[Rfam]
Nucleotides: 057
Stems, first nucleotide, its partner, number of pairs: 012054001013022003023041003027037003042053003
Number, partner (000 for none) and nucleotide at each position: 001000a002000u003000a004000a005000u006000g007000a008000u009000a010000c011000u012054u013022c014021u015020c016000u017000a018000c019000g020015g021014a022013g023041c024040c025039g026000g027037u028036g029035g030000a031000g032000u033000a034000c035029c036028c037027a038000g039025c040024g041023g042053g043052a044051g045000c046000g047000a048000g049000a050000g051044c052043u053042c054012a055000u056000g057000a

Annotation
pemK RNA: a 57-nucleotide RNA sequence. The base pairs follow the family's consensus structure, which is taken from published work. The sequence is in the family's curated seed alignment.